[Rfam]
A member of the RNA family "mir-17 microRNA precursor family" from Denticeps clupeoides, 78 nucleotides long. From the family's description: This family represents the microRNA (miRNA) precursor mir-17, family, which includes mir-20, mir-91, and mir-103. miRNAs are transcribed as ~70nt precursors (modelled here) and subsequently processed by the Dicer enzyme to give a ~22nt product. In this case the mature sequence comes from the 3' arm of the precursor. The family has 234 seed sequences and 4,687 matches in Rfam 15.1. On this family, see Liu et al., J Mol Biol 2025: "Structural Features Within Precursor microRNA-20a Regulate Dicer-TRBP Processing". The source organism's lineage runs through Eukaryota, Metazoa, Actinopteri, Clupeocephala and Denticeps.
RNA sequence: CGUGGUGUGAUAAAGUGCCUACAGUGCAUGUAGUGACUAUUCCGCCUACUGCAGUGUGAGCACUUGUGUUACAACGCG
Numbered sequence: 001c002g003u004g005g006u007g008u009g010a011u012a013a014a015g016u017g018c019c020u021a022c023a024g025u026g027c028a029u030g031u032a033g034u035g036a037c038u039a040u041u042c043c044g045c046c047u048a049c050u051g052c053a054g055u056g057u058g059a060g061c062a063c064u065u066g067u068g069u070u071a072c073a074a075c076g077c078g
Base pairs, nucleotide, nucleotide: 004075006073007072009070010069011068013065014064015063016062017061018060020058021057022056023055025053026052027051030049031048032047033046